[Rfam]
RNA: Burkholderia sRNA 7
Organism: Trinickia fusca
Nucleotides: 166
Stems, first nucleotide, its partner, number of pairs: 005136001007134001011094004031086003039080003043077003046073001049070002054065001140163010
Number, partner (000 for none) and nucleotide at each position: 001000g002000u003000a004000u005136u006000c007134u008000u009000g010000c011094g012093c013092g014091c015000a016000u017000g018000a019000a020000c021000c022000g023000c024000a025000u026000c027000c028000u029000g030000u031086c032085c033084g034000c035000c036000c037000u038000c039080c040079g041078a042000c043077g044076u045075c046073g047000a048000c049070g050069u051000u052000c053000g054065c055000u056000g057000c058000c059000c060000g061000u062000a063000u064000g065054g066000g067000a068000a069050g070049c071000c072000g073046u074000c075045g076044g077043c078041u079040c080039g081000u082000c083000a084033c085032g086031g087000a088000u089000a090000c091014g092013c093012g094011c095000u096000u097000a098000c099000a100000a101000g102000c103000a104000g105000u106000a107000g108000c109000a110000a111000g112000a113000c114000u115000c116000a117000g118000g119000c120000g121000c122000a123000a124000c125000a126000c127000c128000g129000g130000u131000u132000u133000c134007a135000c136005a137000g138000c139000g140163a141162a142161a143160g144159c145158c146157a147156c148155g149154g150000a151000u152000u153000u154149c155148c156147g157146u158145g159144g160143c161142u162141u163140u164000u165000u166000u